[Rfam]
RNA sequence: CCGGGGGGCCGGGCAGCCGCGUUGCCGCAAGGCAUCGAGGAAAGUCCGGGCUCCGCGAAACAAGGGUGGCGGGUAACGCCCGCCGGGCGAAGGUCUACGGGCCGAAGUCUAGGGAUAGUGCCACAGAGAGCAAACCGCCGAUGGAGGGCAACCUCACAGGCAAGGGUGAAAGGGUGCGGUAAGAGCGCACCGGGGGUCUGGCGACAGACCCCGCAUGGUAAACCCCACCCGGAGCAAGACCGCAUAGGGGUCUCGCGCCAACAAUUCUUCGGAUGCGGAGGCAGGAGCGUUUCGCUCCGAGAGGCCCGGGUUGGUUGCAUGAGCGCGUAGGAGCAAUCCUCCGCCGAGAUGAAUGGCUGCCACCGCGGCGCUGAUGUGCAAGCAUAUCGGCCGCGGGACAGAACCCGGCUUACAGGCCCCCCGGCAUC
Numbered sequence: 001c002c003g004g005g006g007g008g009c010c011g012g013g014c015a016g017c018c019g020c021g022u023u024g025c026c027g028c029a030a031g032g033c034a035u036c037g038a039g040g041a042a043a044g045u046c047c048g049g050g051c052u053c054c055g056c057g058a059a060a061c062a063a064g065g066g067u068g069g070c071g072g073g074u075a076a077c078g079c080c081c082g083c084c085g086g087g088c089g090a091a092g093g094u095c096u097a098c099g100g101g102c103c104g105a106a107g108u109c110u111a112g113g114g115a116u117a118g119u120g121c122c123a124c125a126g127a128g129a130g131c132a133a134a135c136c137g138c139c140g141a142u143g144g145a146g147g148g149c150a151a152c153c154u155c156a157c158a159g160g161c162a163a164g165g166g167u168g169a170a171a172g173g174g175u176g177c178g179g180u181a182a183g184a185g186c187g188c189a190c191c192g193g194g195g196g197u198c199u200g201g202c203g204a205c206a207g208a209c210c211c212c213g214c215a216u217g218g219u220a221a222a223c224c225c226c227a228c229c230c231g232g233a234g235c236a237a238g239a240c241c242g243c244a245u246a247g248g249g250g251u252c253u254c255g256c257g258c259c260a261a262c263a264a265u266u267c268u269u270c271g272g273a274u275g276c277g278g279a280g281g282c283a284g285g286a287g288c289g290u291u292u293c294g295c296u297c298c299g300a301g302a303g304g305c306c307c308g309g310g311u312u313g314g315u316u317g318c319a320u321g322a323g324c325g326c327g328u329a330g331g332a333g334c335a336a337u338c339c340u341c342c343g344c345c346g347a348g349a350u351g352a353a354u355g356g357c358u359g360c361c362a363c364c365g366c367g368g369c370g371c372u373g374a375u376g377u378g379c380a381a382g383c384a385u386a387u388c389g390g391c392c393g394c395g396g397g398a399c400a401g402a403a404c405c406c407g408g409c410u411u412a413c414a415g416g417c418c419c420c421c422c423g424g425c426a427u428c
Base pairs, nucleotide, nucleotide: 001424002423003422004421005420006419007418008417009416010415011413012361013360014359015358016357017356018355020037021036023034024033025032026031042411043410044409046408047407048406049405050404051234052233053232054231060292062290064230065229066228067227068226069083070082071081072080073079084112085110086109087108088107113225114224118223119222120219121218122217135165136164137161138160139159142158143157144155145154146153147152173191174190175189176188177187178186192214193212194211195210196209197208198207199206200205238316239315240314241313248307249306250305251304252303253302284298285297286296287295288294325344326343327342329340330339331338332337
Annotation: Bacterial RNase P class A: a 428-nucleotide sequence from Aurantiacibacter marinus. Rfam links the family to the GO terms tRNA processing, ribonuclease P activity and dimeric ribonuclease P complex. By type it is a ribozyme.